[Rfam]
RNA: permuted transfer-messenger RNA
Organism: Sphingomonas lutea
Nucleotides: 212
Base pairs, nucleotide, nucleotide: 001139002138003137004136005135015129016128017127018126027117028116029115031114032113033112037054038053039052040051041050055099056098057097058096059095060094061093140155141154142153143152
Number, partner (000 for none) and nucleotide at each position: 001139g002138u003137c004136g005135g006000u007000a008000g009000a010000u011000u012000g013000u014000u015129g016128a017127g018126u019000g020000g021000a022000a023000u024000a025000a026000g027117c028116a029115c030000u031114u032113c033112g034000g035000a036000c037054c038053c039052g040051g041050g042000g043000g044000c045000a046000g047000u048000a049000c050041c051040c052039c053038g054037g055099c056098g057097c058096c059095u060094c061093c062000a063000c064000c065000a066000c067000c068000a069000g070000c071000c072000c073000u074000c075000g076000u077000c078000g079000c080000g081000a082000g083000g084000a085000u086000u087000g088000c089000u090000g091000a092000u093061g094060g095059g096058g097057g098056c099055g100000a101000a102000a103000u104000a105000g106000g107000a108000u109000c110000g111000a112033c113032g114031a115029g116028u117027g118000c119000g120000g121000u122000a123000a124000a125000g126018g127017c128016u129015u130000g131000g132000c133000u134000g135005c136004c137003g138002a139001u140155c141154g142153g143152u144000a145000g146000g147000a148000g149000a150000c151000c152143a153142c154141c155140g156000u157000g158000a159000a160000g161000g162000c163000u164000c165000a166000a167000u168000c169000a170000c171000a172000c173000a174000a175000g176000u177000g178000c179000u180000a181000a182000c183000g184000a185000u186000a187000a188000c189000g190000a191000a192000g193000c194000a195000c196000u197000c198000g199000c200000g201000a202000u203000u204000g205000c206000c207000g208000c209000g210000u211000a212000a